The family of this 309-nucleotide RNA from Beta vulgaris is "Plant signal recognition particle RNA". For this family Rfam cites "Kinship in the SRP RNA family" (Rosenblad et al., RNA Biol, 2009). The match comes from Rfam's covariance-model search (247 bits).

[Rfam]
RNA sequence: GCUGAGCUAAGUAACGUGAGCUUGUAACCCAUGUGGGGGCAACAAGGUGAUGGAACAUGAUCGUGGCCUUCUGGGUCGGGUCUAUGGUUGGCUGAAUGCUGGCUCGCCCUAUCCAAGUUGGGAGUUGGCUCAUGUGGCUUGGGCGAAGGCCUUAAGCUUCAUGGGCCCUAAAGUGGAGGGUACUGCGUGAGGCUGGUUUCACAGAGCAACGAAAACCUCCCACUCUUGUCAGUGGAAGGAUAACGGGCUAGUGCCUCCUUGGCCCAUUAGUACCUAGUUGGCUGAUAUCUUAAAUGGACCAUCACUUUU
Numbered sequence: 001g002c003u004g005a006g007c008u009a010a011g012u013a014a015c016g017u018g019a020g021c022u023u024g025u026a027a028c029c030c031a032u033g034u035g036g037g038g039g040c041a042a043c044a045a046g047g048u049g050a051u052g053g054a055a056c057a058u059g060a061u062c063g064u065g066g067c068c069u070u071c072u073g074g075g076u077c078g079g080g081u082c083u084a085u086g087g088u089u090g091g092c093u094g095a096a097u098g099c100u101g102g103c104u105c106g107c108c109c110u111a112u113c114c115a116a117g118u119u120g121g122g123a124g125u126u127g128g129c130u131c132a133u134g135u136g137g138c139u140u141g142g143g144c145g146a147a148g149g150c151c152u153u154a155a156g157c158u159u160c161a162u163g164g165g166c167c168c169u170a171a172a173g174u175g176g177a178g179g180g181u182a183c184u185g186c187g188u189g190a191g192g193c194u195g196g197u198u199u200c201a202c203a204g205a206g207c208a209a210c211g212a213a214a215a216c217c218u219c220c221c222a223c224u225c226u227u228g229u230c231a232g233u234g235g236a237a238g239g240a241u242a243a244c245g246g247g248c249u250a251g252u253g254c255c256u257c258c259u260u261g262g263c264c265c266a267u268u269a270g271u272a273c274c275u276a277g278u279u280g281g282c283u284g285a286u287a288u289c290u291u292a293a294a295u296g297g298a299c300c301a302u303c304a305c306u307u308u309u
Base pairs, nucleotide, nucleotide: 001040002039003038004023005022006021007020008019010017028037029036030035044308045307046306047305048304049303050302051301052300053299056296057295058292059291060290061287064284065283066282068280071277072276073275074274075273076272078265079264080263081262082261084259087257090255091254093253094252099251100250101249102248103247104246105245106244108239109238112236113235114234115233117230119228120227121226122225123224124223125222127167128166129165130164131163132162133161134160136158137157138156139155140154141153142151143150144149168173175220176219177218178217179216184213186211187210188209193204194203195202